Plastid-psbA-4 3UTR RNA: a 61-nucleotide sequence from Ziziphus jujuba. The organism belongs to Ziziphus jujuba, within Eukaryota. The literature on the family includes a 2023 paper in Plant Commun by Richter et al., "Retrograde signaling in plants: A critical review focusing on the GUN pathway and beyond". The base pairs follow the family's consensus structure, which was predicted with LocARNA. From the family's description: Plastid psbA-4 is a non-coding RNA (ncRNA) present in plastids.

RNA sequence: GAAAUGAAGGAACAAUAAUCAAUUUCUUAUUCUAGCAAGAAGUUUGUUAUUGCUCCUUUAG
Numbered sequence: 001g002a003a004a005u006g007a008a009g010g011a012a013c014a015a016u017a018a019u020c021a022a023u024u025u026c027u028u029a030u031u032c033u034a035g036c037a038a039g040a041a042g043u044u045u046g047u048u049a050u051u052g053c054u055c056c057u058u059u060a061g
Base pairs, nucleotide, nucleotide: 006059007058008057009056010055011054013052014051015050016049017048021044022043024041025040026039027038028037